[Rfam]
RNA: SmY spliceosomal RNA
Organism: Caenorhabditis remanei
RNA sequence: UCUAGUAUUGUUCUUCUUGCUGGGCCUUCUUUAAGACCCUAAGAUAAAUUUUGGACGCCUGUCUCUAAGGAGGCAGGUGA
Numbered sequence: 001u002c003u004a005g006u007a008u009u010g011u012u013c014u015u016c017u018u019g020c021u022g023g024g025c026c027u028u029c030u031u032u033a034a035g036a037c038c039c040u041a042a043g044a045u046a047a048a049u050u051u052u053g054g055a056c057g058c059c060u061g062u063c064u065c066u067a068a069g070g071a072g073g074c075a076g077g078u079g080a
Stems, first nucleotide, its partner, number of pairs: 022039003026035003056079009